[Rfam]
RNA sequence: CUUUAACAAUCUGGAACAAGCUGAAAAUUGAAACAUUACAGCUGAAAUUUACCCCGCCGUAGAUGUAUUGGGGUAAAGAGUAACCUGUAAUAGAGUCUCUCAAAUAAUCGCAACACAAGAUGUACUGUCAGCAAUGACAAGACACCUUCGG
Numbered sequence: 001c002u003u004u005a006a007c008a009a010u011c012u013g014g015a016a017c018a019a020g021c022u023g024a025a026a027a028u029u030g031a032a033a034c035a036u037u038a039c040a041g042c043u044g045a046a047a048u049u050u051a052c053c054c055c056g057c058c059g060u061a062g063a064u065g066u067a068u069u070g071g072g073g074u075a076a077a078g079a080g081u082a083a084c085c086u087g088u089a090a091u092a093g094a095g096u097c098u099c100u101c102a103a104a105u106a107a108u109c110g111c112a113a114c115a116c117a118a119g120a121u122g123u124a125c126u127g128u129c130a131g132c133a134a135u136g137a138c139a140a141g142a143c144a145c146c147u148u149c150g151g
Base pairs, nucleotide, nucleotide: 020111021110023109024108027105028104029103034093036090037089038088039087040086041085116150118148119146121144122143
The record is a 151-nucleotide RNA from Yersinia pestis, which matches "Salmonella enterica Typhi npcRNA 44" in Rfam.
By type it is a non-coding RNA gene.
Lineage of the source: Bacteria > Pseudomonadota > Enterobacterales > Yersinia > Yersinia pestis.
The family has 34 seed sequences and 474 matches in Rfam 15.1.
A search with the family's covariance model found it, with a score of 59 bits.
Pairs were carried over by alignment from the consensus structure, which was predicted with CMfinder.
For this family Rfam cites "Experimental identification and characterization of 97 novel npcRNA candidates in Salmonella enterica serovar Typhi" (Chinni et al., Nucleic Acids Res, 2010).